This 177-nucleotide RNA from Tissierella sp. P1 belongs to the Rfam family "6S / SsrS RNA".

[Rfam]
RNA sequence: AAUUUUCUGCGGUGUGCGUUAUCUCUGAUAAUUCAACCGACAUAACAGACACGGGAGUCUGCGUUUAAUAUUGGAUAACAAGCCUCCUUAGAGAGGACGUUAGAAGAUAUUAACAGGAAACCCCCCUUUAUUAAGGCGGGUGUGAAUUAGCUGAGUUGACGGCAUUGUGGGUGAAAA
Numbered sequence: 001a002a003u004u005u006u007c008u009g010c011g012g013u014g015u016g017c018g019u020u021a022u023c024u025c026u027g028a029u030a031a032u033u034c035a036a037c038c039g040a041c042a043u044a045a046c047a048g049a050c051a052c053g054g055g056a057g058u059c060u061g062c063g064u065u066u067a068a069u070a071u072u073g074g075a076u077a078a079c080a081a082g083c084c085u086c087c088u089u090a091g092a093g094a095g096g097a098c099g100u101u102a103g104a105a106g107a108u109a110u111u112a113a114c115a116g117g118a119a120a121c122c123c124c125c126c127u128u129u130a131u132u133a134a135g136g137c138g139g140g141u142g143u144g145a146a147u148u149a150g151c152u153g154a155g156u157u158g159a160c161g162g163c164a165u166u167g168u169g170g171g172u173g174a175a176a177a
Base pairs, nucleotide, nucleotide: 003174004173006171007170008169009168010167011166012165013164014163015162017161018160019159033145034144035143036141037140038139053123054122055121058118059117060116064113066112067111068110069109070108071107072106078100079099083096084095085094086093
The base pairs follow the family's consensus structure, which is taken from published work. From the family's description: E. coli 6S RNA was the first non coding RNA to be sequenced, but its function was unknown until recently. It consists of 184 nucleotides that fold into an extended hairpin structure with a large single-stranded internal bulge. The organism belongs to Tissierella, within Bacteria. Rfam classes the family as a non-coding RNA gene. It scores 82 bits against the family's covariance model.